[Rfam]
RNA sequence: GGGAAACUGCUGCGUUGGUGACUGCCAAUAAAGUUUUUUGAUCUAUGCUUUGAGUUUAUAGGGAGCUAACCUAUUUUUGUGGUAGUAAACCAAGCUUGUACUUGGAAACAGAAACAAAAAAAGUCGGCACCCACCUGGUUCACCCAGGUCAUAAACUGAGGUAAAACGGCGCGGCAGUUUUUCC
Numbered sequence: 001g002g003g004a005a006a007c008u009g010c011u012g013c014g015u016u017g018g019u020g021a022c023u024g025c026c027a028a029u030a031a032a033g034u035u036u037u038u039u040g041a042u043c044u045a046u047g048c049u050u051u052g053a054g055u056u057u058a059u060a061g062g063g064a065g066c067u068a069a070c071c072u073a074u075u076u077u078u079g080u081g082g083u084a085g086u087a088a089a090c091c092a093a094g095c096u097u098g099u100a101c102u103u104g105g106a107a108a109c110a111g112a113a114a115c116a117a118a119a120a121a122a123g124u125c126g127g128c129a130c131c132c133a134c135c136u137g138g139u140u141c142a143c144c145c146a147g148g149u150c151a152u153a154a155a156c157u158g159a160g161g162u163a164a165a166a167c168g169g170c171g172c173g174g175c176a177g178u179u180u181u182u183c184c
Stems, first nucleotide, its partner, number of pairs: 002182014018167002035155003039151006061132003065128003069124002072122001074120006085109002090105005

This 184-nucleotide RNA sequence from Aphanothece sacrum belongs to the Rfam family "6S / SsrS RNA". The match comes from Rfam's covariance-model search (110 bits). E. coli 6S RNA was the first non coding RNA to be sequenced, but its function was unknown until recently. NCBI's taxonomy places the organism under Bacteria, Bacillati, Cyanophyceae, Aphanothece, Aphanothece sacrum. The family's RNA type in Rfam is non-coding RNA gene.